The family of this 49-nucleotide sequence from Aliiruegeria haliotis is "SAM/SAH riboswitch aptamer". A reference for the family is Weickhmann et al. (2019), "The structure of the SAM/SAH-binding riboswitch", Nucleic Acids Res. The base pairs follow the family's consensus structure, which is taken from published work. Lineage of the source: Bacteria > Pseudomonadati > Alphaproteobacteria > Rhodobacterales > Aliiruegeria.
[Rfam]
RNA sequence: UGACCGUCACAACGGCUUCCUGGCGUGGCGGGAGAAUUUCAAUGGAGCA
Numbered sequence: 001u002g003a004c005c006g007u008c009a010c011a012a013c014g015g016c017u018u019c020c021u022g023g024c025g026u027g028g029c030g031g032g033a034g035a036a037u038u039u040c041a042a043u044g045g046a047g048c049a
Base pairs, nucleotide, nucleotide: 004031005030006029007028008027009026010025013022014021015048016047017046019045020044